[Rfam]
RNA sequence: UUCCAAAACUCUUUGUCAGGGUGUCAUUGCUGAACUUCACUUUUAUCUUUUUUUGAUUUUGGUUUGUUUACUGAUUAUACAAUGAUGCCUGUUACAGUUUUGGGAAAUUAAUACUAUUCCUAUCUCUUGGCUUCGUUCUGAAGUCGUUCGGGGAUAAAACUAGAAGCAUGGCCAUCGUUCUGAUGGUGUACCUUCGCCUUUUUUGAAUAGCGAGGACUCUAUGAGUUGAAGAGAUGACUUUUUUCAACAACGUAGUUGUUGAAUAAAUCUACCAUCUUUUCGUAGUUGGAGAACUCACAUUU
Numbered sequence: 001u002u003c004c005a006a007a008a009c010u011c012u013u014u015g016u017c018a019g020g021g022u023g024u025c026a027u028u029g030c031u032g033a034a035c036u037u038c039a040c041u042u043u044u045a046u047c048u049u050u051u052u053u054u055g056a057u058u059u060u061g062g063u064u065u066g067u068u069u070a071c072u073g074a075u076u077a078u079a080c081a082a083u084g085a086u087g088c089c090u091g092u093u094a095c096a097g098u099u100u101u102g103g104g105a106a107a108u109u110a111a112u113a114c115u116a117u118u119c120c121u122a123u124c125u126c127u128u129g130g131c132u133u134c135g136u137u138c139u140g141a142a143g144u145c146g147u148u149c150g151g152g153g154a155u156a157a158a159a160c161u162a163g164a165a166g167c168a169u170g171g172c173c174a175u176c177g178u179u180c181u182g183a184u185g186g187u188g189u190a191c192c193u194u195c196g197c198c199u200u201u202u203u204u205g206a207a208u209a210g211c212g213a214g215g216a217c218u219c220u221a222u223g224a225g226u227u228g229a230a231g232a233g234a235u236g237a238c239u240u241u242u243u244u245c246a247a248c249a250a251c252g253u254a255g256u257u258g259u260u261g262a263a264u265a266a267a268u269c270u271a272c273c274a275u276c277u278u279u280u281c282g283u284a285g286u287u288g289g290a291g292a293a294c295u296c297a298c299a300u301u302u
Base pairs, nucleotide, nucleotide: 003103004102005101006100007099019090020089021088022087023086024085025084026083027082028081114210115209116208117207118206119205121156122155123154124153125152126151128146129145130144131143132142133141134140163195164194165193166192171187172186173185174184175183176182177181212296213295214294217291218290219289220288227282228281229280230279231278236272243263244262245261246260247259248258249257250256
Shown here is a 302-nucleotide RNA sequence from Nakaseomyces glabratus, a member of the family "Small nucleolar RNA snR191". Its Rfam clan is "SNORA74 clan". Rfam links the family to the GO terms nucleolus and RNA processing. The literature on the family includes a 2003 paper in RNA by Badis et al., "A snoRNA that guides the two most conserved pseudouridine modifications within rRNA confers a growth advantage in yeast". It is annotated as an H/ACA-box small nucleolar RNA.